[Rfam]
RNA: MIR480 microRNA precursor family
Organism: Salix brachista
RNA sequence: UAAUUUGUUUAGGGUGGGUUCUUAUUUAGUCAGGGCAAACCCACAUUGGAUUGCCCAGAAUCAUCUGUUAUGGCAACCCUAACUACAUUAAUAACCCUACUCACGAGAGAUCAUUACUUCAUUCAUAGACAUAUG
Numbered sequence: 001u002a003a004u005u006u007g008u009u010u011a012g013g014g015u016g017g018g019u020u021c022u023u024a025u026u027u028a029g030u031c032a033g034g035g036c037a038a039a040c041c042c043a044c045a046u047u048g049g050a051u052u053g054c055c056c057a058g059a060a061u062c063a064u065c066u067g068u069u070a071u072g073g074c075a076a077c078c079c080u081a082a083c084u085a086c087a088u089u090a091a092u093a094a095c096c097c098u099a100c101u102c103a104c105g106a107g108a109g110a111u112c113a114u115u116a117c118u119u120c121a122u123u124c125a126u127a128g129a130c131a132u133a134u135g
Stems, first nucleotide, its partner, number of pairs: 004133001006131002008128002012124001014122002018118001025116001027113001029111003